[Rfam]
RNA sequence: CUUUCGAGUAGAAGCGGUCAGUGCCAGCAAUGGCACCGGGCAUUGCUCUUGCG
Numbered sequence: 001c002u003u004u005c006g007a008g009u010a011g012a013a014g015c016g017g018u019c020a021g022u023g024c025c026a027g028c029a030a031u032g033g034c035a036c037c038g039g040g041c042a043u044u045g046c047u048c049u050u051g052c053g
Stems, first nucleotide, its partner, number of pairs: 006048005015038001018040002021036006
Overview
The record is a 53-nucleotide sequence from Pseudomonas atacamensis, which matches "Xanthine riboswitch aptamer (NMT1 RNA)" in Rfam. Rfam's curators put it in the seed alignment. NCBI's taxonomy places the organism under Bacteria, Pseudomonadota, Gammaproteobacteria, Pseudomonadaceae, Pseudomonas atacamensis. On this family, see Yu and Breaker, RNA 2020: "A bacterial riboswitch class senses xanthine and uric acid to regulate genes associated with purine oxidation". Rfam links the family to the GO term purine nucleobase binding.